Overview:
Rfam assigns this 116-nucleotide RNA from Devosia pacifica to the family "Rhizobiales sRNA Atu_C8". A search with the family's covariance model found it, with a score of 58 bits.
RNA sequence: CGUGCGGUCUAUCAUUCUCGUAGUAGGUUGGCGCAUCGGCAACGUGGGAUAAGUUCCCGCGCGAUAGCUGAUGCGCCGAACAAGGUCCCGAAAGGGGCCUUUUUUAUUGGCUGGUU
Numbered sequence: 001c002g003u004g005c006g007g008u009c010u011a012u013c014a015u016u017c018u019c020g021u022a023g024u025a026g027g028u029u030g031g032c033g034c035a036u037c038g039g040c041a042a043c044g045u046g047g048g049a050u051a052a053g054u055u056c057c058c059g060c061g062c063g064a065u066a067g068c069u070g071a072u073g074c075g076c077c078g079a080a081c082a083a084g085g086u087c088c089c090g091a092a093a094g095g096g097g098c099c100u101u102u103u104u105u106a107u108u109g110g111c112u113g114g115u116u
Base pairs, nucleotide, nucleotide: 003025005023026112027111028110029109030077031076032075033074034073035072036071037070038069039068043061044060045059046058047057048056049055082101083100084099085098086097087096088095089094
For this family Rfam cites "Deep sequencing uncovers numerous small RNAs on all four replicons of the plant pathogen Agrobacterium tumefaciens" (Wilms et al., RNA Biol, 2012).